Annotation: This 113-nucleotide sequence from Macaca fascicularis belongs to the Rfam family "Y RNA". The source organism's lineage runs through Eukaryota, Chordata, Gnathostomata, Eutheria and Macaca. The family's consensus secondary structure is taken from published work.
RNA sequence: GGCUGGUCUGAAGGUAGUGAGUUAUCUCAGUUGAUUGUUCACAGUCAGUUAUAGGUUGAACUUCUUGUUCUACUCUUUUCCACAUUCUCACUACUACACAUGACUAGUUUUAA
Numbered sequence: 001g002g003c004u005g006g007u008c009u010g011a012a013g014g015u016a017g018u019g020a021g022u023u024a025u026c027u028c029a030g031u032u033g034a035u036u037g038u039u040c041a042c043a044g045u046c047a048g049u050u051a052u053a054g055g056u057u058g059a060a061c062u063u064c065u066u067g068u069u070c071u072a073c074u075c076u077u078u079u080c081c082a083c084a085u086u087c088u089c090a091c092u093a094c095u096a097c098a099c100a101u102g103a104c105u106a107g108u109u110u111u112a113a
Stems, first nucleotide, its partner, number of pairs: 001109008010101001014097002016092006044074001047071002